[Rfam]
RNA sequence: GCUGGAAUUGUGCGGCGUAUAGUUCACGAAAGCGAAGCCCCGCGUCUGGUCGAUGACAUGAAACAGCGGAUUCCAGUCGAACAUCCGCAGCAUGAAAUGCGGCAAUGUAUUCGCCACGACCAUCUUGCCUGACGUGAACAUGUUCAGACGCAUG
Numbered sequence: 001g002c003u004g005g006a007a008u009u010g011u012g013c014g015g016c017g018u019a020u021a022g023u024u025c026a027c028g029a030a031a032g033c034g035a036a037g038c039c040c041c042g043c044g045u046c047u048g049g050u051c052g053a054u055g056a057c058a059u060g061a062a063a064c065a066g067c068g069g070a071u072u073c074c075a076g077u078c079g080a081a082c083a084u085c086c087g088c089a090g091c092a093u094g095a096a097a098u099g100c101g102g103c104a105a106u107g108u109a110u111u112c113g114c115c116a117c118g119a120c121c122a123u124c125u126u127g128c129c130u131g132a133c134g135u136g137a138a139c140a141u142g143u144u145c146a147g148a149c150g151c152a153u154g
Stems, first nucleotide, its partner, number of pairs: 003034002008030002014024002037057001039055001041052002064154002066151003071081003086147001089144006098134002100131003103127003107123002110119002
Shown here is a 154-nucleotide RNA from Paracoccus aurantiacus, a member of the family "Ruegeria cis2 sRNA". The base pairs follow the family's consensus structure, which was predicted with RNAfold. It is annotated as a small RNA. On this family, see Rivers et al., Front Microbiol 2016: "Experimental Identification of Small Non-Coding RNAs in the Model Marine Bacterium Ruegeria pomeroyi DSS-3". Rfam links the family to the GO term regulation of gene expression.